The family of this 113-nucleotide sequence from Folsomia candida is "Fusobacteriales-1 RNA".
The family's RNA type in Rfam is cis-regulatory element.
Lineage of the source: Eukaryota > Opisthokonta > Hexapoda > Collembola > Folsomia.
It scores 61 bits against the family's covariance model.
RNA sequence: CAAUCCAUUUCUGGAUUUUGGAAAAAAAAUCCAAUCCAUCCAAAUCCAUUUCUGGAUUUUGGAAAAAAAUCCAAUCCAUCCAAAUCCAUUUCUGGAUUUUUGAAAAAAAUCCA
Numbered sequence: 001c002a003a004u005c006c007a008u009u010u011c012u013g014g015a016u017u018u019u020g021g022a023a024a025a026a027a028a029a030u031c032c033a034a035u036c037c038a039u040c041c042a043a044a045u046c047c048a049u050u051u052c053u054g055g056a057u058u059u060u061g062g063a064a065a066a067a068a069a070u071c072c073a074a075u076c077c078a079u080c081c082a083a084a085u086c087c088a089u090u091u092c093u094g095g096a097u098u099u100u101u102g103a104a105a106a107a108a109a110u111c112c113a
Base pairs, nucleotide, nucleotide: 006021012033013032014031015030016029017028018027047061048060053073054072055071056070057069058068059067087102088101093113094112095111096110097109098108099107